The family of this 52-nucleotide sequence from Hipposideros armiger is "mir-1302 microRNA precursor family". Lineage of the source: Eukaryota > Mammalia > Laurasiatheria > Chiroptera > Hipposideros. Rfam links the family to the GO terms miRNA-mediated post-transcriptional gene silencing and RISC complex. The match comes from Rfam's covariance-model search (65 bits).

[Rfam]
RNA sequence: AUUUUAGUAUAAGUAUGCCCCAUGUCAUAUUUAGGACAUAGUUAUACUAAAA
Dot-bracket structure: .....(((((((.(((..((.(........)..))..))).)))))))....